SAM riboswitch aptamer (S box leader): a 115-nucleotide RNA sequence from Syntrophotalea acetylenivorans.
Rfam describes the family as follows. The SAM riboswitch is found upstream of a number of genes which code for proteins involved in methionine or cysteine biosynthesis in Gram-positive bacteria. The SAM riboswitch acts at the level of transcription termination control. The predicted structure consists of a complex stem-loop region followed by a single stem loop terminator region. An alternative and mutually exclusive form involves bases in the 3' segment of helix 1 with those in the 5' region of helix 5 to form a structure termed the anti-terminator form. This entry represents the conserved core of the complex structure involving helices 1-4.
Lineage of the source: Bacteria > Pseudomonadati > Desulfuromonadia > Desulfuromonadales > Syntrophotalea.
RNA sequence: UCUUUAUGGAGAGUGGCGGAGGGACAGGCCCGAUGAUGCCACAGCAACCGGCUCGCGAUGUGCGAAUGUCAGGUGCUAAUUCCUGCCCCCGCGGGUUUGGGGGGAAAGAUGAGGA
Numbered sequence: 001u002c003u004u005u006a007u008g009g010a011g012a013g014u015g016g017c018g019g020a021g022g023g024a025c026a027g028g029c030c031c032g033a034u035g036a037u038g039c040c041a042c043a044g045c046a047a048c049c050g051g052c053u054c055g056c057g058a059u060g061u062g063c064g065a066a067u068g069u070c071a072g073g074u075g076c077u078a079a080u081u082c083c084u085g086c087c088c089c090c091g092c093g094g095g096u097u098u099g100g101g102g103g104g105a106a107a108g109a110u111g112a113g114g115a
Stems, first nucleotide, its partner, number of pairs: 001115007013042005021031003025085004043077004048073002050070003081107001086104005